[Rfam]
RNA sequence: AUGCACAUGAUGAUUAAUCUCGGAUUCCCCUUCAAGACUUAUUGGGUGAUGUCAACUCCGAGUAUCUGAUGCG
Dot-bracket structure: .((((................................................................))))
Numbered sequence: 001a002u003g004c005a006c007a008u009g010a011u012g013a014u015u016a017a018u019c020u021c022g023g024a025u026u027c028c029c030c031u032u033c034a035a036g037a038c039u040u041a042u043u044g045g046g047u048g049a050u051g052u053c054a055a056c057u058c059c060g061a062g063u064a065u066c067u068g069a070u071g072c073g
Stems, first nucleotide, its partner, number of pairs: 002073004
The family of this 73-nucleotide RNA sequence from Carnegiea gigantea is "Small nucleolar RNA snoR60".
Its Rfam clan is "SNORD101 clan".
The organism belongs to Carnegiea, within Eukaryota.
It scores 74 bits against the family's covariance model.
The base pairs follow the family's consensus structure, which was predicted with PFOLD.